A member of the RNA family "U2 spliceosomal RNA" from Puccinia coronata, 174 nucleotides long. On this family, see Berglund et al., RNA 2001: "Crystal structure of a model branchpoint-U2 snRNA duplex containing bulged adenosines". Lineage of the source: Eukaryota > Opisthokonta > Dikarya > Pucciniomycotina > Puccinia coronata var. avenae. The family is grouped with related families in Rfam's "U2 clan". U2 is a small nuclear RNA (snRNA) component of the spliceosome (involved in pre-mRNA splicing). Complementary binding between U2 snRNA (in an area lying towards the 5' end but 3' to hairpin I) and the branchpoint sequence (BPS) of the intron results the bulging out of an unpaired adenosine, on the BPS, which initiates a nucleophilic attack at the intronic 5' splice site, thus starting the first of two transesterification reactions that mediate splicing.

RNA sequence: CUCCCCUCAUCCGUGUAGUAUCUGUUCUUAUCAGUGUAAUUACUAGUAUUGGUUCAUCGAACCAAUCAAUUAAUUACUCUUAUCUUUGCAAUGCCCUCAGUCAGCCCCCAGCUUGCUGGACUGGCUGAGACAAUGGCCUUGGGCUUACACUACUCCCUUGUGCUGUCAGGCAAU
Numbered sequence: 001c002u003c004c005c006c007u008c009a010u011c012c013g014u015g016u017a018g019u020a021u022c023u024g025u026u027c028u029u030a031u032c033a034g035u036g037u038a039a040u041u042a043c044u045a046g047u048a049u050u051g052g053u054u055c056a057u058c059g060a061a062c063c064a065a066u067c068a069a070u071u072a073a074u075u076a077c078u079c080u081u082a083u084c085u086u087u088g089c090a091a092u093g094c095c096c097u098c099a100g101u102c103a104g105c106c107c108c109c110a111g112c113u114u115g116c117u118g119g120a121c122u123g124g125c126u127g128a129g130a131c132a133a134u135g136g137c138c139u140u141g142g143g144c145u146u147a148c149a150c151u152a153c154u155c156c157c158u159u160g161u162g163c164u165g166u167c168a169g170g171c172a173a174u
Stems, first nucleotide, its partner, number of pairs: 029048003033044002049065007096129008108119004133166005138160001141157003